About this RNA:
Rfam assigns this 99-nucleotide sequence from Vibrio palustris to the family "c-di-GMP-I-GGC riboswitch aptamer". For this family Rfam cites "Bioinformatic analysis of riboswitch structures uncovers variant classes with altered ligand specificity" (Weinberg et al., Proc Natl Acad Sci U S A, 2017). Lineage of the source: Bacteria > Pseudomonadati > Pseudomonadota > Gammaproteobacteria > Vibrio.

RNA sequence: CACGCACAGGGCAAACCAAUCGAAAGGUUGGGACGCAAAGCCUCCGGCCUUAGCUUGAUGACAGUAUCUGUCAUCUAAAAGGUAGCGGGGUUACCGAUG
Numbered sequence: 001c002a003c004g005c006a007c008a009g010g011g012c013a014a015a016c017c018a019a020u021c022g023a024a025a026g027g028u029u030g031g032g033a034c035g036c037a038a039a040g041c042c043u044c045c046g047g048c049c050u051u052a053g054c055u056u057g058a059u060g061a062c063a064g065u066a067u068c069u070g071u072c073a074u075c076u077a078a079a080a081g082g083u084a085g086c087g088g089g090g091u092u093a094c095c096g097a098u099g
Stems, first nucleotide, its partner, number of pairs: 001099001003096002011036002016031006034085001039092004044088003047083005
Rfam links the family to the GO term cyclic-di-GMP binding.